Plant signal recognition particle RNA: a 304-nucleotide sequence from Cucumis melo.
RNA sequence: GCCGAGCUUGGUCACGUAAGCUUGUAACUCGAGUGAGGGCAUUUAAGGAAAUGGAACAUCGGUCCAAACAUCUGGGCCGGGUCUAAAUCGGCUUCAUUCUGGGCCAGACCGUUUCAAGCAAAGAGAUGGGCUGUGUUCUCUGGGCGGAAGCCCUAUCGGGCACAGCCUUUAAAGCGGAGGGGAAAGCGUCAGGCUGGCUGACAGAGCAACGACAACCUCCCGCUCUUUGCGGUGAAAGGAUAUCUGACCGGUGCCUCUUGGGGCCCGCUAGGUCCAGAAAUUGGCCUAAUGGACCGUUUCCUUU
Numbered sequence: 001g002c003c004g005a006g007c008u009u010g011g012u013c014a015c016g017u018a019a020g021c022u023u024g025u026a027a028c029u030c031g032a033g034u035g036a037g038g039g040c041a042u043u044u045a046a047g048g049a050a051a052u053g054g055a056a057c058a059u060c061g062g063u064c065c066a067a068a069c070a071u072c073u074g075g076g077c078c079g080g081g082u083c084u085a086a087a088u089c090g091g092c093u094u095c096a097u098u099c100u101g102g103g104c105c106a107g108a109c110c111g112u113u114u115c116a117a118g119c120a121a122a123g124a125g126a127u128g129g130g131c132u133g134u135g136u137u138c139u140c141u142g143g144g145c146g147g148a149a150g151c152c153c154u155a156u157c158g159g160g161c162a163c164a165g166c167c168u169u170u171a172a173a174g175c176g177g178a179g180g181g182g183a184a185a186g187c188g189u190c191a192g193g194c195u196g197g198c199u200g201a202c203a204g205a206g207c208a209a210c211g212a213c214a215a216c217c218u219c220c221c222g223c224u225c226u227u228u229g230c231g232g233u234g235a236a237a238g239g240a241u242a243u244c245u246g247a248c249c250g251g252u253g254c255c256u257c258u259u260g261g262g263g264c265c266c267g268c269u270a271g272g273u274c275c276a277g278a279a280a281u282u283g284g285c286c287u288a289a290u291g292g293a294c295c296g297u298u299u300c301c302u303u304u
Base pairs, nucleotide, nucleotide: 001040002039003038004023005022006021007020008019009018010017028037029036030035045303046302047301048300049299050298051297052296053295054294057291058290059288061286064284065283066282067281071278072277073276074275075274076273077272078271079265080264082262083261084260085259086258090255091254093253099251100250101249103248105246106245107244108243109239110238112237113236114235115234116233118230119229120228121227122226123225124224125223128168129167130166131165132164133163134162135161136160137159138158141155142154143152144151145150169174176220177219178218179217180216187211188210189209194204195203196202
For this family Rfam cites "Prediction of signal recognition particle RNA genes" (Regalia et al., Nucleic Acids Res, 2002). Lineage of the source: Eukaryota > Streptophyta > Spermatophyta > Gunneridae > Cucumis.